[Rfam]
Nucleotides: 148
Stems, first nucleotide, its partner, number of pairs: 004023003008019001034051003039046001054067005082148005089143007098132002101129005107123005
Number, partner (000 for none) and nucleotide at each position: 001000g002000u003000g004023c005022c006021u007000c008019a009000a010000u011000c012000u013000a014000u015000u016000g017000a018000g019008u020000a021006a022005g023004g024000a025000a026000a027000u028000u029000a030000u031000u032000g033000g034051g035050c036049c037000u038000u039046g040000g041000u042000a043000a044000c045000g046039c047000u048000u049036g050035g051034c052000a053000a054067u055066g056065u057064c058063c059000u060000a061000a062000a063058g064057g065056g066055c067054g068000a069000a070000a071000a072000g073000a074000u075000u076000u077000u078000u079000g080000g081000a082148u083147g084146g085145g086144u087000a088000c089143a090142g091141g092140u093139c094138g095137u096000c097000c098132c099131c100000u101129g102128a103127g104126u105125u106000g107123c108122u109121c110120g111119c112000c113000u114000a115000c116000u117000u118000u119111g120110u121109g122108a123107g124000c125105g126104a127103u128102u129101c130000g131099g132098g133000u134000g135000a136000a137095g138094c139093g140092a141091u142090c143089u144086a145085c146084c147083u148082a

A member of the RNA family "U12 minor spliceosomal RNA" from Chrysodeixis includens, 148 nucleotides long. The pairing is the family consensus, mapped onto this sequence. The organism belongs to Chrysodeixis, within Eukaryota. The match comes from Rfam's covariance-model search (104 bits). It is annotated as a spliceosomal small nuclear RNA.